A member of the RNA family "c-di-AMP riboswitch aptamer (ydaO/yuaA leader)" from Streptomyces sp. TS71-3, 157 nucleotides long. The organism belongs to Streptomyces, within Bacteria.
[Rfam]
RNA sequence: CCCCACACACCACCCACGCCUGGCAGGAGCGGGGGAACCGCACGCAGUACGCCGGUCCGGACUCCGGAACGGCUUGGGGUGAAGCCACGGGACAUCCGCGGCCGGGCAUCUCCAGCUCGAACCCGACAGCUCACCUCGCAGGCGCCGGAGAGGAAUG
Numbered sequence: 001c002c003c004c005a006c007a008c009a010c011c012a013c014c015c016a017c018g019c020c021u022g023g024c025a026g027g028a029g030c031g032g033g034g035g036a037a038c039c040g041c042a043c044g045c046a047g048u049a050c051g052c053c054g055g056u057c058c059g060g061a062c063u064c065c066g067g068a069a070c071g072g073c074u075u076g077g078g079g080u081g082a083a084g085c086c087a088c089g090g091g092a093c094a095u096c097c098g099c100g101g102c103c104g105g106g107c108a109u110c111u112c113c114a115g116c117u118c119g120a121a122c123c124c125g126a127c128a129g130c131u132c133a134c135c136u137c138g139c140a141g142g143c144g145c146c147g148g149a150g151a152g153g154a155a156u157g
Stems, first nucleotide, its partner, number of pairs: 011144001013142002019027002029139006039076002077124003085101002088098001104118004